[Rfam]
RNA sequence: CGACGCCGCACGGGAGAGCUUCGACCACGGUCCGACCGUAGCCGGUCGCGGCACGGGUCGAGCGCCGAAGGAGCAGCACCUCUCCGUCAAUCUCUCAGGCCCCCGGACCGUGCGGGCUCC
Number, nucleotide and partner (000 for none) at each position: 001c000002g000003a000004c000005g000006c115007c114008g113009c112010a111011c110012g109013g108014g000015a000016g000017a000018g000019c000020u062021u061022c060023g059024a058025c057026c056027a000028c000029g000030g000031u000032c000033c000034g000035a000036c000037c000038g000039u000040a000041g000042c000043c000044g000045g000046u000047c000048g000049c000050g000051g000052c000053a000054c000055g000056g026057g025058u024059c023060g022061a021062g020063c000064g100065c099066c098067g096068a095069a000070g000071g094072a093073g092074c000075a000076g000077c000078a087079c086080c000081u000082c000083u000084c000085c000086g079087u078088c000089a000090a000091u000092c073093u072094c071095u068096c067097a000098g066099g065100c064101c000102c000103c000104c000105g000106g000107a000108c013109c012110g011111u010112g009113c008114g007115g006116g000117c000118u000119c000120c000